[Rfam]
RNA sequence: GGAACGGGAGGCCGCCAUUGGGACGGUGGCCGGGAAUUGUCCAUAUUUCGACCGUCUCGUAUGGGCGUGGUGCCGGGGACCCGACGGCUGCCGCG
Numbered sequence: 001g002g003a004a005c006g007g008g009a010g011g012c013c014g015c016c017a018u019u020g021g022g023a024c025g026g027u028g029g030c031c032g033g034g035a036a037u038u039g040u041c042c043a044u045a046u047u048u049c050g051a052c053c054g055u056c057u058c059g060u061a062u063g064g065g066c067g068u069g070g071u072g073c074c075g076g077g078g079a080c081c082c083g084a085c086g087g088c089u090g091c092c093g094c095g
Stems, first nucleotide, its partner, number of pairs: 002042001004040002010031007066095005072088004
RNA: Rhodo-rpoB RNA